[Rfam]
Source information:
A member of the RNA family "mir-456 microRNA precursor family" from Scyliorhinus torazame, 73 nucleotides long.
RNA sequence: GCGUGAGCAGGCAUCUAUCCAGCCUACACGUAGGUGAUGAAAUCUGCAGGCUGGUUAGAUGGUUGUCCUGCAC
Dot-bracket structure: ......((((.(((((..(((((((....((((((......)))))))))))))..))))).)))).......
It scores 82 bits against the family's covariance model. For this family Rfam cites "MicroRNA profile of Marek's disease virus-transformed T-cell line MSB-1: predominance of virus-encoded microRNAs" (Yao et al., J Virol, 2008). The source organism's lineage runs through Eukaryota, Eumetazoa, Chordata, Carcharhiniformes and Scyliorhinus. Rfam links the family to the GO terms miRNA-mediated post-transcriptional gene silencing and RISC complex. Rfam 15.1 lists 493 matches to the family in 473 species.